This 54-nucleotide RNA sequence belongs to the Rfam family "chrB-b RNA". Rfam classes the family as a cis-regulatory element.
[Rfam]
RNA sequence: UCGGGUCUUUGGCAGACACCCGGUCACCCAGGACGAUUUCGUCCCAAGUGCUGC
Dot-bracket structure: ((((((.....[[[[..)))))).......(((((....)))))......]]]]